RNA sequence: AGGCCCCUCCUUCCCAGCCCAGCUCCCGCUCACCCCUGCCACGUCAAAGGAGGCAGAAGGGGAGUCCAGAGCAGAAAGGUGACUG
Numbered sequence: 001a002g003g004c005c006c007c008u009c010c011u012u013c014c015c016a017g018c019c020c021a022g023c024u025c026c027c028g029c030u031c032a033c034c035c036c037u038g039c040c041a042c043g044u045c046a047a048a049g050g051a052g053g054c055a056g057a058a059g060g061g062g063a064g065u066c067c068a069g070a071g072c073a074g075a076a077a078g079g080u081g082a083c084u085g
Stems, first nucleotide, its partner, number of pairs: 002084002004081001006079003012075002022072004028066001029064003033061003036056005042050001